[Rfam]
RNA sequence: UUCUUAUCCAGAGAGAGUGAGGGACUGACCCGUUGAACUCUCGGCAACCAGUCUGAUGCUGCAUUUGCGUAUCGGACCCGGUGCCAAUUUCAGGGAUUUGCAGAAAUCCGAAGAUGAGAA
Number, nucleotide and partner (000 for none) at each position: 001u120002u119003c118004u117005u116006a115007u114008c113009c000010a000011g000012a000013g042014a041015g040016a039017g038018u000019g000020a000021g031022g030023g029024a000025c093026u092027g091028a090029c023030c022031c021032g000033u000034u000035g000036a000037a000038c017039u016040c015041u014042c013043g085044g084045c083046a082047a000048c081049c080050a000051g077052u076053c075054u074055g073056a072057u071058g070059c069060u000061g000062c000063a000064u000065u000066u000067g000068c000069g059070u058071a057072u056073c055074g054075g053076a052077c051078c000079c000080g049081g048082u046083g045084c044085c043086a000087a000088u000089u112090u028091c027092a026093g025094g109095g108096a107097u106098u105099u104100g000101c000102a000103g000104a099105a098106a097107u096108c095109c094110g000111a000112a089113g008114a007115u006116g005117a004118g003119a002120a001
Source information: This 120-nucleotide RNA sequence from Lentibacillus sp. CBA3610 belongs to the Rfam family "SAM riboswitch aptamer (S box leader)". The match comes from Rfam's covariance-model search (81 bits). The source organism's lineage runs through Bacteria, Bacillati, Caryophanales, Bacillaceae and Lentibacillus.